[Rfam]
RNA sequence: UUUUUAAAAAGCCUUUUCUUUCUGGUUCUUCCUGGAGUCUGGAAAAGCUGGGUUGAGAGAGUGGAAAAAAAUAAAU
Numbered sequence: 001u002u003u004u005u006a007a008a009a010a011g012c013c014u015u016u017u018c019u020u021u022c023u024g025g026u027u028c029u030u031c032c033u034g035g036a037g038u039c040u041g042g043a044a045a046a047g048c049u050g051g052g053u054u055g056a057g058a059g060a061g062u063g064g065a066a067a068a069a070a071a072u073a074a075a076u
Stems, first nucleotide, its partner, number of pairs: 014059005021052005029044004034039001
A member of the RNA family "mir-320 microRNA precursor family" from Sapajus apella, 76 nucleotides long. A search with the family's covariance model found it, with a score of 73 bits. Taxonomically the source falls in Sapajus (Eukaryota, Metazoa, Deuterostomia, Teleostomi). Pairs were carried over by alignment from the consensus structure, which was predicted with RNAalifold.